[Rfam]
RNA sequence: GUCAGGCUGUAACAGCAAAUCAAAAUAGGUGUUAGGAUUCAAAAUUCAGAAUUUUGAUUUGCUGUUACAGCCUGAC
Numbered sequence: 001g002u003c004a005g006g007c008u009g010u011a012a013c014a015g016c017a018a019a020u021c022a023a024a025a026u027a028g029g030u031g032u033u034a035g036g037a038u039u040c041a042a043a044a045u046u047c048a049g050a051a052u053u054u055u056g057a058u059u060u061g062c063u064g065u066u067a068c069a070g071c072c073u074g075a076c
Stems, first nucleotide, its partner, number of pairs: 001076003005072003010069001011066008020056001022055005

Notes:
mir-16 microRNA precursor family: a 76-nucleotide sequence from Pelusios castaneus. Rfam 15.1 lists 4,705 matches to the family in 758 species. It scores 38 bits against the family's covariance model. The source organism's lineage runs through Eukaryota, Deuterostomia, Vertebrata, Sauropsida and Pelusios. A reference for the family is Calin et al. (2002), "Frequent deletions and down-regulation of micro- RNA genes miR15 and miR16 at 13q14 in chronic lymphocytic leukemia", Proc Natl Acad Sci U S A.